The record is a 173-nucleotide RNA from Enterococcus sulfureus, which matches "Enterococcus sRNA B11" in Rfam. The family's consensus secondary structure was predicted with RNAfold. A reference for the family is Innocenti et al. (2015), "Whole-genome mapping of 5' RNA ends in bacteria by tagged sequencing: a comprehensive view in Enterococcus faecalis", RNA. Lineage of the source: Bacteria > Bacillati > Bacilli > Enterococcus > Enterococcus sulfureus.
[Rfam]
RNA sequence: GGCAGCUUGCCCCAAUUGGGGGUGUUACUCAUGAAAGAUCUUAUCUCAUUGGUUAUCGCACCACUUUUUGUUGGGCUAGUCAUUCAACUAGUUUCUCAUUGGUUAGACGAGAAAGACGAUAACUAGCAAGUUGCUUGGCUAACUCAUACGCCAGAAUCGCAACUGGUGCAAAA
Numbered sequence: 001g002g003c004a005g006c007u008u009g010c011c012c013c014a015a016u017u018g019g020g021g022g023u024g025u026u027a028c029u030c031a032u033g034a035a036a037g038a039u040c041u042u043a044u045c046u047c048a049u050u051g052g053u054u055a056u057c058g059c060a061c062c063a064c065u066u067u068u069u070g071u072u073g074g075g076c077u078a079g080u081c082a083u084u085c086a087a088c089u090a091g092u093u094u095c096u097c098a099u100u101g102g103u104u105a106g107a108c109g110a111g112a113a114a115g116a117c118g119a120u121a122a123c124u125a126g127c128a129a130g131u132u133g134c135u136u137g138g139c140u141a142a143c144u145c146a147u148a149c150g151c152c153a154g155a156a157u158c159g160c161a162a163c164u165g166g167u168g169c170a171a172a173a
Stems, first nucleotide, its partner, number of pairs: 001135008010021004023035001025033001050125009059115001061073001063071002076091005092106002096102002149168005